RNA: Guanidine-I riboswitch aptamer
Organism: Bacillus sp. MUM 13
RNA sequence: GACUAUGUUUUCUAGGGUUCCGCAGUAUCUUGCUGGCCUGGACCGAGAGAAAACACGCAGCCGAGCUGUGCCACGGAGGGAUAAAAGCCCGGGAGAU
Numbered sequence: 001g002a003c004u005a006u007g008u009u010u011u012c013u014a015g016g017g018u019u020c021c022g023c024a025g026u027a028u029c030u031u032g033c034u035g036g037c038c039u040g041g042a043c044c045g046a047g048a049g050a051a052a053a054c055a056c057g058c059a060g061c062c063g064a065g066c067u068g069u070g071c072c073a074c075g076g077a078g079g080g081a082u083a084a085a086a087g088c089c090c091g092g093g094a095g096a097u
Stems, first nucleotide, its partner, number of pairs: 007054006015044002020041002022038001023035005056070006072092001074095001078090003